[Rfam]
RNA: c-di-AMP riboswitch aptamer (ydaO/yuaA leader)
Organism: Mesobacillus zeae
RNA sequence: UAUAUUGAAUCGCUUAAUCCAUUUGGAGCGGGGGAACCAAAAUGGCGGGCUUUUAUGACCGUCAUGGGGUGAAGCCUUGAUAAGAAGGCGGGGCCAUUUUCCGGGCCCUAAUCCGACAGCUAACCUCGCAGGCGUGCAGGAGAGUAAGA
Numbered sequence: 001u002a003u004a005u006u007g008a009a010u011c012g013c014u015u016a017a018u019c020c021a022u023u024u025g026g027a028g029c030g031g032g033g034g035a036a037c038c039a040a041a042a043u044g045g046c047g048g049g050c051u052u053u054u055a056u057g058a059c060c061g062u063c064a065u066g067g068g069g070u071g072a073a074g075c076c077u078u079g080a081u082a083a084g085a086a087g088g089c090g091g092g093g094c095c096a097u098u099u100u101c102c103g104g105g106c107c108c109u110a111a112u113c114c115g116a117c118a119g120c121u122a123a124c125c126u127c128g129c130a131g132g133c134g135u136g137c138a139g140g141a142g143a144g145u146a147a148g149a
Stems, first nucleotide, its partner, number of pairs: 011134004018027003028129006038066002067114003075088004091108004